The family of this 97-nucleotide RNA from Chauna torquata is "Vault RNA". Taxonomically the source falls in Chauna (Eukaryota, Metazoa, Sauria, Anseriformes). Rfam classes the family as a non-coding RNA gene.

RNA sequence: GGGCCGGCUAUAGCCCAGCGGUUCCUUCGGCAAGCUGCAUUUGCUUUCCCCCAUGCCCUGACAUGGGUUCGAUCCCGCGGGCACCCCUGGCCCAUUU
Numbered sequence: 001g002g003g004c005c006g007g008c009u010a011u012a013g014c015c016c017a018g019c020g021g022u023u024c025c026u027u028c029g030g031c032a033a034g035c036u037g038c039a040u041u042u043g044c045u046u047u048c049c050c051c052c053a054u055g056c057c058c059u060g061a062c063a064u065g066g067g068u069u070c071g072a073u074c075c076c077g078c079g080g081g082c083a084c085c086c087c088u089g090g091c092c093c094a095u096u097u
Stems, first nucleotide, its partner, number of pairs: 002092006013082004018078004027072004